RNA sequence: GGCAAAAUGAUGAGACUUAUUGUAGUCUGAAUUUCGAUGUGGAGUUCUUACACGCAUACCUUCAAAGUUCUCUGAUUGCU
Number, nucleotide and partner (000 for none) at each position: 001g080002g079003c078004a077005a076006a000007a000008u000009g000010a000011u000012g000013a000014g000015a000016c000017u000018u000019a000020u000021u000022g000023u000024a000025g000026u000027c000028u000029g000030a000031a000032u000033u000034u000035c000036g000037a000038u000039g000040u000041g000042g000043a000044g000045u000046u000047c000048u000049u000050a000051c000052a000053c000054g000055c000056a000057u000058a000059c000060c000061u000062u000063c000064a000065a000066a000067g000068u000069u000070c000071u000072c000073u000074g000075a000076u005077u004078g003079c002080u001
A member of the RNA family "Small nucleolar RNA R160" from Kalanchoe fedtschenkoi, 80 nucleotides long.
On this family, see Chen et al., Nucleic Acids Res 2003: "The high diversity of snoRNAs in plants: identification and comparative study of 120 snoRNA genes from Oryza sativa".
Rfam 15.1 lists 799 matches to the family in 221 species.
Gene Ontology terms of the family: RNA processing and nucleolus.
It scores 56 bits against the family's covariance model.
snoR160 is a C/D box small nucleolar RNA, which acts as a methylation guide for 25S ribosomal RNA in plants. snoR160 has been alternatively named snoZ270 in rice.